[Rfam]
A member of the RNA family "Actino-pnp RNA" from Streptomyces laurentii, 58 nucleotides long. Pairs were carried over by alignment from the consensus structure, which is taken from published work. Taxonomically the source falls in Streptomyces (Bacteria, Bacillati, Actinomycetes, Streptomycetaceae). The family's RNA type in Rfam is cis-regulatory element.
RNA sequence: GCCGGUCCUCGGUAGUGGCCCCCGGACACCGAUCCGGGAGCUUCGAUCGAAGACCGGC
Numbered sequence: 001g002c003c004g005g006u007c008c009u010c011g012g013u014a015g016u017g018g019c020c021c022c023c024g025g026a027c028a029c030c031g032a033u034c035c036g037g038g039a040g041c042u043u044c045g046a047u048c049g050a051a052g053a054c055c056g057g058c
Base pairs, nucleotide, nucleotide: 001058002057003056004055005054006053007052009050010049011048012047013046017042018041019040021038022037023036024035025034026033